[Rfam]
RNA: Actino-pnp RNA
RNA sequence: GCCGGUCCUCGGUAGUGGCUUCCGGUAGGUCACGCGGGCGUCGCCCGCGCCACCGGGCGCUUCGAUCGAAGACCGGC
Numbered sequence: 001g002c003c004g005g006u007c008c009u010c011g012g013u014a015g016u017g018g019c020u021u022c023c024g025g026u027a028g029g030u031c032a033c034g035c036g037g038g039c040g041u042c043g044c045c046c047g048c049g050c051c052a053c054c055g056g057g058c059g060c061u062u063c064g065a066u067c068g069a070a071g072a073c074c075g076g077c
Stems, first nucleotide, its partner, number of pairs: 001077007009069005017061003021057006028051003